[Rfam]
RNA sequence: UGGAACUAAGCUCUUUUAGUAAUUUUCUAGCAGGAUUUCUAUAAGGGAAAUCCCCC
Numbered sequence: 001u002g003g004a005a006c007u008a009a010g011c012u013c014u015u016u017u018a019g020u021a022a023u024u025u026u027c028u029a030g031c032a033g034g035a036u037u038u039c040u041a042u043a044a045g046g047g048a049a050a051u052c053c054c055c056c
Stems, first nucleotide, its partner, number of pairs: 033053008
U7 small nuclear RNA: a 56-nucleotide sequence from Larimichthys crocea. Taxonomically the source falls in Larimichthys (Eukaryota, Metazoa, Euteleostomi, Actinopteri). Rfam's curators write: Animal histone pre-mRNAs are spliced by a different mechanism than nuclear pre-mRNAs and self-splicing introns.